The record is a 104-nucleotide RNA sequence from Brevundimonas sp. AAP58, which matches "Cauldobacter sRNA CC3552" in Rfam. A search with the family's covariance model found it, with a score of 78 bits. The source organism's lineage runs through Bacteria, Pseudomonadati, Alphaproteobacteria, Caulobacterales and Brevundimonas. A reference for the family is Landt et al. (2008), "Small non-coding RNAs in Caulobacter crescentus", Mol Microbiol.
[Rfam]
RNA sequence: GGAGGCGGCGACGCCCCCCGACUUGGACCCGCUCCGGCAGGUCCUGCUGCCUCCGCGCCUCAUUCUCGAUGAUGCCACCUCAAGGCGAUCCGCAAGGGUCGCCU
Dot-bracket structure: ((((((((((.((.....)).....((((.((....)).)))).))))))))))............................(((((((((....)))))))))